[Rfam]
RNA sequence: GACUAGUCUGAAGGUAGUGAUAUAUUUCUGUUGAUUGUUCACAGUCAAAGAUUGAAUUCUUUGGUCUACUUUUCCCUCCCUUCUCACUACUGAUCUUGACUAGUCUUAA
Number, nucleotide and partner (000 for none) at each position: 001g105002a104003c103004u102005a101006g100007u099008c098009u000010g097011a096012a000013g000014g000015u092016a088017g087018u086019g085020a084021u000022a000023u000024a000025u000026u000027u000028c000029u000030g000031u000032u000033g000034a000035u000036u000037g000038u000039u000040c000041a000042c000043a067044g066045u000046c000047a000048a000049a000050g000051a000052u000053u000054g000055a000056a000057u000058u000059c000060u000061u000062u000063g000064g000065u000066c044067u043068a000069c000070u000071u000072u000073u000074c000075c000076c000077u000078c000079c000080c000081u000082u000083c000084u020085c019086a018087c017088u016089a000090c000091u000092g015093a000094u000095c000096u011097u010098g008099a007100c006101u005102a004103g003104u002105c001106u000107u000108a000109a000
Rfam assigns this 109-nucleotide RNA from Nomascus leucogenys to the family "Y RNA". Rfam classes the family as a non-coding RNA gene. The match comes from Rfam's covariance-model search (56 bits).